A member of the RNA family "U1 spliceosomal RNA" from Pyrus ussuriensis x Pyrus communis, 162 nucleotides long. The source organism's lineage runs through Eukaryota, Euphyllophyta, Mesangiospermae, fabids and Pyrus. Rfam describes the family as follows. U1 is a small nuclear RNA (snRNA) component of the spliceosome (involved in pre-mRNA splicing). Its 5' end forms complementary base pairs with the 5' splice junction, thus defining the 5' donor site of an intron. There are significant differences in sequence and secondary structure between metazoan and yeast U1 snRNAs, the latter being much longer (568 nucleotides as compared to 164 nucleotides in human). Nevertheless, secondary structure predictions suggest that all U1 snRNAs share a 'common core' consisting of helices I, II, the proximal region of III, and IV. This family does not contain the larger yeast sequences. It is annotated as a spliceosomal small nuclear RNA. The family's consensus secondary structure is taken from published work. For this family Rfam cites "The uRNA database" (Zwieb, Nucleic Acids Res, 1997).
[Rfam]
RNA sequence: AUACUUACCUGGACGGGGUCUAUGGGCGAUCAAGAAGGCUCAUGGCCUAGGUUGGUGACCUCCAUUGCACUUUGGAGGGGUGCCUGCCUAUGGUCUCCUCAACGUAGGAGAGCCAACGUCAUAAUUUGUUGCACUGGGGGCCUGCGUUCGCGCGGCCCCUGU
Number, nucleotide and partner (000 for none) at each position: 001a000002u000003a000004c000005u000006u000007a000008c000009c000010u000011g000012g120013a119014c118015g117016g048017g047018g046019u045020c044021u000022a000023u042024g041025g040026g039027c038028g000029a000030u000031c000032a000033a000034g000035a000036a000037g000038g027039c026040u025041c024042a023043u000044g020045g019046c018047c017048u016049a089050g088051g087052u000053u086054g000055g083056u082057g081058a000059c079060c078061u077062c075063c074064a000065u000066u000067g000068c000069a000070c000071u000072u000073u000074g063075g062076a000077g061078g060079g059080g000081u057082g056083c055084c000085u000086g053087c051088c050089u049090a000091u115092g114093g113094u111095c110096u109097c000098c107099u106100c000101a000102a000103c000104g000105u000106a099107g098108g000109a096110g095111a094112g000113c093114c092115a091116a000117c015118g014119u013120c012121a000122u000123a000124a000125u000126u000127u000128g000129u000130u000131g000132c000133a000134c000135u161136g160137g159138g158139g157140g000141c000142c000143u154144g153145c152146g151147u000148u000149c000150g000151c146152g145153c144154g143155g000156c000157c139158c138159c137160u136161g135162u000